This 115-nucleotide RNA sequence from Novibacillus thermophilus belongs to the Rfam family "SAM riboswitch aptamer (S box leader)". From the family's description: The SAM riboswitch is found upstream of a number of genes which code for proteins involved in methionine or cysteine biosynthesis in Gram-positive bacteria. Gene Ontology term of the family: regulation of gene expression. NCBI's taxonomy places the organism under Bacteria, Bacillati, Bacilli, Thermoactinomycetaceae, Novibacillus. Its Rfam clan is "SAM clan".
RNA sequence: CUCUUAUCCAGAGAGGUGGAGGGACUGGCCCGAUGAAACCCGGCAACCUUUGCACGGUUCCUGUGCAAAAAGGUGCCAAUUCCUGCAAAGCCGUUUAGGUUUUGAAAGAUAAGAG
Numbered sequence: 001c002u003c004u005u006a007u008c009c010a011g012a013g014a015g016g017u018g019g020a021g022g023g024a025c026u027g028g029c030c031c032g033a034u035g036a037a038a039c040c041c042g043g044c045a046a047c048c049u050u051u052g053c054a055c056g057g058u059u060c061c062u063g064u065g066c067a068a069a070a071a072g073g074u075g076c077c078a079a080u081u082c083c084u085g086c087a088a089a090g091c092c093g094u095u096u097a098g099g100u101u102u103u104g105a106a107a108g109a110u111a112a113g114a115g
Base pairs, nucleotide, nucleotide: 001115002114003113004112005111006110007109008108013041015040016039017038021031022030023029025085027083028082042077043076044075045074047073048072049069050068051067052066053065054064055063081107086104087103088102089101090100091099
Dot-bracket structure: ((((((((....(.(((...(((.[.[[)))......))))((((.(((((((((.......)))))))..))))))...(]].]((((((.......))))))..)))))))))